[Rfam]
Shown here is a 102-nucleotide sequence from Brevibacillus brevis, a member of the family "PyrR binding site". The family's consensus secondary structure is taken from published work. Rfam 15.1 lists 1,498 matches to the family in 930 species. For this family Rfam cites "Molecular recognition of pyr mRNA by the Bacillus subtilis attenuation regulatory protein PyrR" (Bonner et al., Nucleic Acids Res, 2001). The family's RNA type in Rfam is cis-regulatory element. NCBI's taxonomy places the organism under Bacteria, Bacillota, Paenibacillaceae, Brevibacillus, Brevibacillus brevis.

RNA sequence: UUCCUCUUUAAAAACGAUCCUGUGAGGUCGGCAAGAGGCAAGAUACUUCCCAUGACUAUGGCGAAGCUAGCCUCUUUGUGCCCGCACAAAGAGGUUUUUUGU
Number, nucleotide and partner (000 for none) at each position: 001u000002u000003c038004c037005u036006c035007u034008u033009u000010a000011a000012a000013a000014a000015c030016g029017a028018u027019c026020c000021u000022g000023u000024g000025a000026g019027g018028u017029c016030g015031g000032c000033a008034a007035g006036a005037g004038g003039c000040a000041a000042g000043a000044u000045a000046c066047u064048u063049c000050c061051c060052a059053u058054g000055a000056c000057u000058a053059u052060g051061g050062c000063g048064a047065a000066g046067c000068u000069a096070g095071c094072c093073u092074c091075u090076u089077u088078g087079u086080g085081c000082c000083c000084g000085c080086a079087c078088a077089a076090a075091g074092a073093g072094g071095u070096u069097u000098u000099u000100u000101g000102u000